[Rfam]
RNA sequence: AAAAAUGCCCAUUACGGGGGUAGUACCCCAACCGGGAGCUACCUUACCAUAUUCAGCGUUU
Numbered sequence: 001a002a003a004a005a006u007g008c009c010c011a012u013u014a015c016g017g018g019g020g021u022a023g024u025a026c027c028c029c030a031a032c033c034g035g036g037a038g039c040u041a042c043c044u045u046a047c048c049a050u051a052u053u054c055a056g057c058g059u060u061u
Stems, first nucleotide, its partner, number of pairs: 017045008026036002
The family of this 61-nucleotide RNA from Cylindrospermum sp. NIES-4074 is "Plastid-psbN 5UTR RNA". About the family: Plastid psbN is a non-coding RNA (ncRNA) recognised in plastids. It was reported as a conserved 11 stem-loop in the prime untranslated region (5UTR) of psbN genes. It has been reported that the motif is retained in a subset of mature transcripts in barley, which can suggests a possible role in transcript alternative 5 prime processing. Lineage of the source: Bacteria > Bacillati > Cyanobacteriota > Nostocales > Cylindrospermum. Rfam classes the family as a cis-regulatory element.